[Rfam]
RNA sequence: CUCCCAAGGAGCGUUGCAGCGGCCCACCCGGAUGGGUGCCGUCAGGCUUGGGAACACCAACGACGCUCGCCUGAU
Numbered sequence: 001c002u003c004c005c006a007a008g009g010a011g012c013g014u015u016g017c018a019g020c021g022g023c024c025c026a027c028c029c030g031g032a033u034g035g036g037u038g039c040c041g042u043c044a045g046g047c048u049u050g051g052g053a054a055c056a057c058c059a060a061c062g063a064c065g066c067u068c069g070c071c072u073g074a075u
Stems, first nucleotide, its partner, number of pairs: 002053006020041004025036001
This 75-nucleotide RNA from Rhodoferax koreensis belongs to the Rfam family "SAH (S-adenosyl-L-homocysteine) riboswitch aptamer". The match comes from Rfam's covariance-model search (56 bits). Rfam 15.1 lists 1,354 matches to the family in 1,132 species. Pairs were carried over by alignment from the consensus structure, which is taken from published work.